[Rfam]
This 84-nucleotide sequence from Thamnophis sirtalis belongs to the Rfam family "mir-365 microRNA precursor family". Rfam links the family to the GO terms miRNA-mediated post-transcriptional gene silencing and RISC complex.
RNA sequence: CCACGGGGAAAAUGAGGGACUUUGGGGGCAGCUGUGUUUUUCCAUGCUACCUAAAUGCUCCUAAAAAUCCUUAUUGUUCUUGUU
Numbered sequence: 001c002c003a004c005g006g007g008g009a010a011a012a013u014g015a016g017g018g019a020c021u022u023u024g025g026g027g028g029c030a031g032c033u034g035u036g037u038u039u040u041u042c043c044a045u046g047c048u049a050c051c052u053a054a055a056u057g058c059u060c061c062u063a064a065a066a067a068u069c070c071u072u073a074u075u076g077u078u079c080u081u082g083u084u
Stems, first nucleotide, its partner, number of pairs: 015072005021066003024062007033054001036051001